[Rfam]
RNA: Small nucleolar RNA SNORA15
RNA sequence: GCAUGGACGAAUUCUGUAUUACUUUGCUAUAGUAAAUGCAGUCAGACACCAUGCUAAAGUAUACUUCAUGCUAACCUUUAGUCAGAUCGAUGGCGUGUGUCUUUGGUCUUGUGUUAGUGCGAAUACAAAG
Numbered sequence: 001g002c003a004u005g006g007a008c009g010a011a012u013u014c015u016g017u018a019u020u021a022c023u024u025u026g027c028u029a030u031a032g033u034a035a036a037u038g039c040a041g042u043c044a045g046a047c048a049c050c051a052u053g054c055u056a057a058a059g060u061a062u063a064c065u066u067c068a069u070g071c072u073a074a075c076c077u078u079u080a081g082u083c084a085g086a087u088c089g090a091u092g093g094c095g096u097g098u099g100u101c102u103u104u105g106g107u108c109u110u111g112u113g114u115u116a117g118u119g120c121g122a123a124u125a126c127a128a129a130g
Base pairs, nucleotide, nucleotide: 001054002053003052004051005050006049014041015040016039017038018037019036065123066122067121069119070118071117072116073115074114075113081112082111084109085108086107087106088105089104090103092101093100
Dot-bracket structure: ((((((.......((((((................)))))).......))))))..........(((.(((((((.....((.(((((((.((......)).))))))).))))))))).))).......